[Rfam]
The family of this 135-nucleotide RNA from Aureobasidium vineae is "tRNA". By type it is a transfer RNA. Lineage of the source: Eukaryota > Pezizomycotina > dothideomyceta > Dothideomycetidae > Aureobasidium. The family's consensus secondary structure is taken from published work. It scores 50 bits against the family's covariance model.
RNA sequence: GGGCAGAUGGCCGAGUGGUUAAGGCGCUGGCUUUAGGCUGUAUGGAAAGAUUCGAUCCAUGUGGAGAAAAUCAAUUCUAUAUCUAUCUUAAAUCGCCAGUUCGAAAGAGCGUGGGUUCGAACCCCACUCUGCUCA
Numbered sequence: 001g002g003g004c005a006g007a008u009g010g011c012c013g014a015g016u017g018g019u020u021a022a023g024g025c026g027c028u029g030g031c032u033u034u035a036g037g038c039u040g041u042a043u044g045g046a047a048a049g050a051u052u053c054g055a056u057c058c059a060u061g062u063g064g065a066g067a068a069a070a071u072c073a074a075u076u077c078u079a080u081a082u083c084u085a086u087c088u089u090a091a092a093u094c095g096c097c098a099g100u101u102c103g104a105a106a107g108a109g110c111g112u113g114g115g116u117u118c119g120a121a122c123c124c125c126a127c128u129c130u131g132c133u134c135a
Base pairs, nucleotide, nucleotide: 001134002133003132004131005130006129007128010025011024012023027099028098029097030096031095111127112126113125114124115123